[Rfam]
RNA: c-di-AMP riboswitch aptamer (ydaO/yuaA leader)
RNA sequence: GUUCUUAAAUCGCUGAAUCCAUUAGGAGCGGGGGACCCAAAUUUGCUGCAGACUGCAGCUCGGGGUGAAUCCUUUACAGGUAGGGCUACUCUCAUGGCCCGAAUCCGACAGCUAACUUCGCAAGCGUUCUUGAGAGAGGAU
Numbered sequence: 001g002u003u004c005u006u007a008a009a010u011c012g013c014u015g016a017a018u019c020c021a022u023u024a025g026g027a028g029c030g031g032g033g034g035a036c037c038c039a040a041a042u043u044u045g046c047u048g049c050a051g052a053c054u055g056c057a058g059c060u061c062g063g064g065g066u067g068a069a070u071c072c073u074u075u076a077c078a079g080g081u082a083g084g085g086c087u088a089c090u091c092u093c094a095u096g097g098c099c100c101g102a103a104u105c106c107g108a109c110a111g112c113u114a115a116c117u118u119c120g121c122a123a124g125c126g127u128u129c130u131u132g133a134g135a136g137a138g139g140a141u
Stems, first nucleotide, its partner, number of pairs: 011126004018027003028121006038062001063106003071080003083100004